[Rfam]
RNA sequence: AUAGCACCAAUGAUGUUUACAUCCAUAACUCAUCCUUGCACUAUGAGCUUACCAGUGAAGAAAGCAUUGGGGAAUUCGUAGUCUGAGGUGCUC
Numbered sequence: 001a002u003a004g005c006a007c008c009a010a011u012g013a014u015g016u017u018u019a020c021a022u023c024c025a026u027a028a029c030u031c032a033u034c035c036u037u038g039c040a041c042u043a044u045g046a047g048c049u050u051a052c053c054a055g056u057g058a059a060g061a062a063a064g065c066a067u068u069g070g071g072g073a074a075u076u077c078g079u080a081g082u083c084u085g086a087g088g089u090g091c092u093c
Base pairs, nucleotide, nucleotide: 003092004091005090006089007088008087
Dot-bracket structure: ..((((((..............................................................................)))))).
Small nucleolar RNA snoR26: a 93-nucleotide RNA sequence from Leersia perrieri. A reference for the family is Brown et al. (2001), "Multiple snoRNA gene clusters from Arabidopsis", RNA. By type it is a C/D-box small nucleolar RNA. Its family is annotated with RNA processing and nucleolus in the Gene Ontology.